This 76-nucleotide RNA sequence from Erythrocercus mccallii belongs to the Rfam family "mir-460 microRNA precursor family". The literature on the family includes a 2006 paper in FEBS Lett by Xu et al., "Identification of microRNAs from different tissues of chicken embryo and adult chicken". Lineage of the source: Eukaryota > Archelosauria > Saurischia > Dicruridae > Erythrocercus. The family has 21 seed sequences and 1,029 matches in Rfam 15.1. A search with the family's covariance model found it, with a score of 80 bits.
RNA sequence: CUUUAUAGCACCUGCAUUGUACACACUGUGUGUGUGGCUGGAAAUGCACAGCGCAUACAAUGUGGAGGCUGUACAC
Numbered sequence: 001c002u003u004u005a006u007a008g009c010a011c012c013u014g015c016a017u018u019g020u021a022c023a024c025a026c027u028g029u030g031u032g033u034g035u036g037g038c039u040g041g042a043a044a045u046g047c048a049c050a051g052c053g054c055a056u057a058c059a060a061u062g063u064g065g066a067g068g069c070u071g072u073a074c075a076c
Stems, first nucleotide, its partner, number of pairs: 012065002015062007024053001026051006